The family of this 103-nucleotide RNA from Kalanchoe fedtschenkoi is "MIR162_1 microRNA precursor family". The family has 36 seed sequences and 270 matches in Rfam 15.1. Its Rfam clan is "MIR167 microRNA precursor clan". Pairs were carried over by alignment from the consensus structure, which was predicted with RNAalifold.

[Rfam]
RNA sequence: GGUGAGGUCACUGGAGGCAGCGGUUCAUCGAUCUCUUGCUGAAGUUGAUUGUUUGACUUUUCAGGAAUCAGAUCGAUAAACCUCUGCAUCCAGUGCAUCAUCU
Numbered sequence: 001g002g003u004g005a006g007g008u009c010a011c012u013g014g015a016g017g018c019a020g021c022g023g024u025u026c027a028u029c030g031a032u033c034u035c036u037u038g039c040u041g042a043a044g045u046u047g048a049u050u051g052u053u054u055g056a057c058u059u060u061u062c063a064g065g066a067a068u069c070a071g072a073u074c075g076a077u078a079a080a081c082c083u084c085u086g087c088a089u090c091c092a093g094u095g096c097a098u099c100a101u102c103u
Base pairs, nucleotide, nucleotide: 013091014090015089018086019085020084022082023081024080025079027077028076029075030074031073032072033071036067037066

Background
For this family Rfam cites "MicroRNAs in plants" (Reinhart et al., Genes Dev, 2002). NCBI's taxonomy places the organism under Eukaryota, Streptophytina, Tracheophyta, Gunneridae, Kalanchoe.